[Rfam]
RNA sequence: CGCAGGCGCGCGUCAACCGGACACGGUGGCAGAGGGAACGGGUUGGUUUUUCCGGUUUCCCGACCCGGCCAACGAAACGGCAGCCGAGCCCUUAUCCCACCCGCGCC
Numbered sequence: 001c002g003c004a005g006g007c008g009c010g011c012g013u014c015a016a017c018c019g020g021a022c023a024c025g026g027u028g029g030c031a032g033a034g035g036g037a038a039c040g041g042g043u044u045g046g047u048u049u050u051u052c053c054g055g056u057u058u059c060c061c062g063a064c065c066c067g068g069c070c071a072a073c074g075a076a077a078c079g080g081c082a083g084c085c086g087a088g089c090c091c092u093u094a095u096c097c098c099a100c101c102c103g104c105g106c107c
Base pairs, nucleotide, nucleotide: 006106007105008104009103012022013021014020025101026100027099028097029096033092034091035090036089039067040066041065042064043063044062045061068081069080070079
RNA: Rhizobiales sRNA Atu_At1
Organism: Devosia epidermidihirudinis